[Rfam]
RNA sequence: GUUAUCGGAUUCAUCUCAAUCCACAUGUGUUGGUGUGGAUUAUAAUGGAAUUUAGUUCAAGUUUCACUCCAAUCCAUACUAACACAUGUGGAUUGAUACAAAUCCGACU
Numbered sequence: 001g002u003u004a005u006c007g008g009a010u011u012c013a014u015c016u017c018a019a020u021c022c023a024c025a026u027g028u029g030u031u032g033g034u035g036u037g038g039a040u041u042a043u044a045a046u047g048g049a050a051u052u053u054a055g056u057u058c059a060a061g062u063u064u065c066a067c068u069c070c071a072a073u074c075c076a077u078a079c080u081a082a083c084a085c086a087u088g089u090g091g092a093u094u095g096a097u098a099c100a101a102a103u104c105c106g107a108c109u
Stems, first nucleotide, its partner, number of pairs: 005107007014098001016096017035077007046066002

Rfam assigns this 109-nucleotide RNA from Miscanthus lutarioriparius to the family "MIR5565 microRNA precursor family". The source organism's lineage runs through Eukaryota, Euphyllophyta, Panicoideae, Andropogoneae and Miscanthus. The family's consensus secondary structure was predicted with RNAalifold. It scores 90 bits against the family's covariance model. Rfam links the family to the GO terms RISC complex and miRNA-mediated post-transcriptional gene silencing.